[Rfam]
Shown here is a 187-nucleotide part of an RNA from Triticum urartu, a member of the family "Archaeal large subunit ribosomal RNA". Taxonomically the source falls in Triticum (Eukaryota, Streptophyta, Streptophytina, Poaceae). It scores 1338 bits against the family's covariance model. Pairs were carried over by alignment from the consensus structure, which is taken from published work.
RNA sequence: GACUCAUAGGCAGUGGCUUGGUUAAGGGAACGGAACCCACCGGAGCCAUAGCGAAACGAGGUCUAUCCAUGACCAGGAUGAAGCUUGGAUGAAACUAAGCAGAGGUCCGAACCGACUGAUGUUGAAGAAUCAGCGGAUGAGUUGUGGUUAGGGGUGAAAUGCCACUCGAACCCAGAGCUAGCUGGUU
Numbered sequence: 001g002a003c004u005c006a007u008a009g010g011c012a013g014u015g016g017c018u019u020g021g022u023u024a025a026g027g028g029a030a031c032g033g034a035a036c037c038c039a040c041c042g043g044a045g046c047c048a049u050a051g052c053g054a055a056a057c058g059a060g061g062u063c064u065a066u067c068c069a070u071g072a073c074c075a076g077g078a079u080g081a082a083g084c085u086u087g088g089a090u091g092a093a094a095c096u097a098a099g100c101a102g103a104g105g106u107c108c109g110a111a112c113c114g115a116c117u118g119a120u121g122u123u124g125a126a127g128a129a130u131c132a133g134c135g136g137a138u139g140a141g142u143u144g145u146g147g148u149u150a151g152g153g154g155u156g157a158a159a160u161g162c163c164a165c166u167c168g169a170a171c172c173c174a175g176a177g178c179u180a181g182c183u184g185g186u187u
Stems, first nucleotide, its partner, number of pairs: 005043001046185002053182001057175001060172003063151003067147007074139001076108004083100006112136003117132004153163003